The record is a 109-nucleotide sequence from Amphibacillus marinus, which matches "Bacillaceae-1 RNA" in Rfam. NCBI's taxonomy places the organism under Bacteria, Bacillota, Caryophanales, Bacillaceae, Amphibacillus.

RNA sequence: AGUGGGGGAUGUUAGACUAAACCAGUCACGUUCUGGGGCUGGGACUGUGCGAUUACUCGUCCCACCAAAAACACUUGUGACAACGCCUAACUGAUUCACAUCCUGUGAG
Numbered sequence: 001a002g003u004g005g006g007g008g009a010u011g012u013u014a015g016a017c018u019a020a021a022c023c024a025g026u027c028a029c030g031u032u033c034u035g036g037g038g039c040u041g042g043g044a045c046u047g048u049g050c051g052a053u054u055a056c057u058c059g060u061c062c063c064a065c066c067a068a069a070a071a072c073a074c075u076u077g078u079g080a081c082a083a084c085g086c087c088u089a090a091c092u093g094a095u096u097c098a099c100a101u102c103c104u105g106u107g108a109g
Stems, first nucleotide, its partner, number of pairs: 011091005017085001025081005095109005